Annotation: The family of this 130-nucleotide RNA from Rhodoblastus acidophilus is "TPP riboswitch aptamer (THI element)". The base pairs follow the family's consensus structure, which is taken from published work. Its family is annotated with thiamine pyrophosphate binding in the Gene Ontology. NCBI's taxonomy places the organism under Bacteria, Pseudomonadota, Alphaproteobacteria, Rhodoblastaceae, Rhodoblastus.

RNA sequence: GGAAUCGCCAGGGAGAGCUUCGGCAAGAAGCUGAGAGGCCGCUGGCGCGAAUGUCCGCAUUCGCGCGGCGCGGCGAUCCCCACAACCUGAUCCGGGUCAUGCCGGCGGAGGGAUGGCGGUCGCAUCUCUA
Numbered sequence: 001g002g003a004a005u006c007g008c009c010a011g012g013g014a015g016a017g018c019u020u021c022g023g024c025a026a027g028a029a030g031c032u033g034a035g036a037g038g039c040c041g042c043u044g045g046c047g048c049g050a051a052u053g054u055c056c057g058c059a060u061u062c063g064c065g066c067g068g069c070g071c072g073g074c075g076a077u078c079c080c081c082a083c084a085a086c087c088u089g090a091u092c093c094g095g096g097u098c099a100u101g102c103c104g105g106c107g108g109a110g111g112g113a114u115g116g117c118g119g120u121c122g123c124a125u126c127u128c129u130a
Stems, first nucleotide, its partner, number of pairs: 006118005011080004017031005038074005086111003092105004